A member of the RNA family "DUF3577 RNA", 101 nucleotides long.
RNA sequence: CGAUCGGAUAGUGCGGGAAACCGCAUGAAACUCGCCUGCAAUUCCCGGCAUCACCGCGUUGCGGUGUGGCGACUUCACUUCUGCCUUCUGGCAGUAUCAAA
Numbered sequence: 001c002g003a004u005c006g007g008a009u010a011g012u013g014c015g016g017g018a019a020a021c022c023g024c025a026u027g028a029a030a031c032u033c034g035c036c037u038g039c040a041a042u043u044c045c046c047g048g049c050a051u052c053a054c055c056g057c058g059u060u061g062c063g064g065u066g067u068g069g070c071g072a073c074u075u076c077a078c079u080u081c082u083g084c085c086u087u088c089u090g091g092c093a094g095u096a097u098c099a100a101a
Stems, first nucleotide, its partner, number of pairs: 011026006032072005052066006079096001081094004

The sequence is in the family's curated seed alignment.